RNA: Small nucleolar RNA Z266
Organism: Corchorus olitorius
RNA sequence: GAAUGGCAAGAAUGAUGAAUCAAUUAGAUGCGUGAAUGGGAAAUGAAAAUUUUCCAUUAUGAACUCAACUUUUGAGGCAUUAUAAUUUGUCUGACUUGCCAUUC
Numbered sequence: 001g002a003a004u005g006g007c008a009a010g011a012a013u014g015a016u017g018a019a020u021c022a023a024u025u026a027g028a029u030g031c032g033u034g035a036a037u038g039g040g041a042a043a044u045g046a047a048a049a050u051u052u053u054c055c056a057u058u059a060u061g062a063a064c065u066c067a068a069c070u071u072u073u074g075a076g077g078c079a080u081u082a083u084a085a086u087u088u089g090u091c092u093g094a095c096u097u098g099c100c101a102u103u104c
Stems, first nucleotide, its partner, number of pairs: 001104010